[Rfam]
RNA sequence: AGCUUUUACGAGGUAUCAGCACUUUUCUUUCAUUAGGGGGAAGGAGUGAGGAAAGUACCAAACAGCAGCAGACUUUUAAACUUUAAAUAGACAGGUCUGAGUGCCUGAACUUGCUUUUUCAUUUUACUUCAUCCUCUGAGGCGUGCCUACUUCACUUCUUUUAAGGGAAAGAGUAAGUUUUCAAA
Numbered sequence: 001a002g003c004u005u006u007u008a009c010g011a012g013g014u015a016u017c018a019g020c021a022c023u024u025u026u027c028u029u030u031c032a033u034u035a036g037g038g039g040g041a042a043g044g045a046g047u048g049a050g051g052a053a054a055g056u057a058c059c060a061a062a063c064a065g066c067a068g069c070a071g072a073c074u075u076u077u078a079a080a081c082u083u084u085a086a087a088u089a090g091a092c093a094g095g096u097c098u099g100a101g102u103g104c105c106u107g108a109a110c111u112u113g114c115u116u117u118u119u120c121a122u123u124u125u126a127c128u129u130c131a132u133c134c135u136c137u138g139a140g141g142c143g144u145g146c147c148u149a150c151u152u153c154a155c156u157u158c159u160u161u162u163a164a165g166g167g168a169a170a171g172a173g174u175a176a177g178u179u180u181u182c183a184a185a
Stems, first nucleotide, its partner, number of pairs: 002020003007015003029143001031141001033139007040130004048123002051120001053119003070098006099114001101112001103110001150171003153167001155165003
Dot-bracket structure: .(((..(((...)))..)))........(.(.(((((((((((....((.(.(((..............((((((.................))))))(.(.(......).).)..)))).))...))))..))))))).).)......((((.(((.....))).).)))..............
Overview:
This 185-nucleotide RNA from Sus scrofa belongs to the Rfam family "Connexin-43 internal ribosome entry site (IRES)". On this family, see Schiavi et al., FEBS Lett 1999: "Connexin43 mRNA contains a functional internal ribosome entry site". From the family's description: This family represents the connexin-43 internal ribosome entry site (IRES) which allows cap independent translation during conditions such as heat shock and stress. The family's consensus secondary structure is taken from published work.